[Rfam]
RNA: SAH (S-adenosyl-L-homocysteine) riboswitch aptamer
Organism: Dechloromonas aromatica
RNA sequence: UCUGCCGAGGAGCGCUGCGACCCUUUAAUUCGGGGGCCAGGCUCGGCAAUGAUCAACGGCGCUCGCAAACC
Number, nucleotide and partner (000 for none) at each position: 001u000002c000003u048004g047005c046006c045007g044008a043009g000010g000011a000012g000013c000014g000015c000016u000017g000018c000019g000020a000021c036022c035023c034024u033025u032026u000027a000028a000029u000030u000031c000032g025033g024034g023035g022036g021037c000038c000039a000040g000041g000042c000043u008044c007045g006046g005047c004048a003049a000050u000051g000052a000053u000054c000055a000056a000057c000058g000059g000060c000061g000062c000063u000064c000065g000066c000067a000068a000069a000070c000071c000